A member of the RNA family "SAM-I/IV (S-adenosyl methionine) riboswitch aptamer", 117 nucleotides long. Gene Ontology terms of the family: S-adenosylmethionine metabolic process and regulation of gene expression.
RNA sequence: CAUCAGCAUCAAGAGCAAGAUUAAAUUCUUCUCCAACCUGCCCACUCCGGUAAGGUGGAAAAACGAUGCGGCAUUCUGCAAUACAAGGAGGAAGAAUGGAAAAAAGAGUAUUUUGUC
Number, nucleotide and partner (000 for none) at each position: 001c000002a000003u000004c000005a000006g069007c068008a067009u066010c065011a000012a000013g000014a000015g031016c000017a030018a029019g028020a027021u000022u000023a000024a000025a000026u000027u020028c019029u018030u017031c015032u059033c058034c057035a000036a000037c055038c054039u053040g051041c050042c049043c000044a112045c000046u110047c000048c108049g042050g041051u040052a000053a039054g038055g037056u000057g034058g033059a032060a000061a000062a000063a000064c000065g010066a009067u008068g007069c006070g000071g000072c098073a097074u096075u095076c094077u093078g000079c000080a000081a000082u000083a000084c000085a000086a000087g000088g000089a000090g000091g000092a000093a077094g076095a075096a074097u073098g072099g000100a000101a000102a000103a000104a000105a000106g000107a000108g048109u000110a046111u000112u044113u000114u000115g000116u000117c000